[Rfam]
RNA: U5 spliceosomal RNA
Organism: Digitaria exilis
RNA sequence: AGCUGCGCGGUGACCACAAAGCGAACUAUUCUUUCGCCUUUUACUAAAGAAUACCGUGUGCGCGUCGCAAAUAGCAGCAUACGCUAAUUUUUUGAGGGGAUUCUCAUUAGAGGUGGGCC
Number, nucleotide and partner (000 for none) at each position: 001a000002g000003c077004u076005g075006c074007g000008c067009g066010g065011u064012g063013a000014c000015c060016a059017c058018a057019a000020a000021g000022c000023g000024a000025a000026c000027u053028a052029u051030u050031c049032u048033u047034u046035c000036g000037c000038c000039u000040u000041u000042u000043a000044c000045u000046a034047a033048a032049g031050a030051a029052u028053a027054c000055c000056g000057u018058g017059u016060g015061c000062g000063c012064g011065u010066c009067g008068c000069a000070a000071a000072u000073a000074g006075c005076a004077g003078c000079a000080u000081a000082c000083g000084c000085u000086a000087a000088u000089u000090u000091u000092u000093u000094g000095a000096g000097g000098g000099g000100a000101u000102u000103c117104u116105c115106a114107u000108u000109a000110g000111a000112g000113g000114u106115g105116g104117g103118c000119c000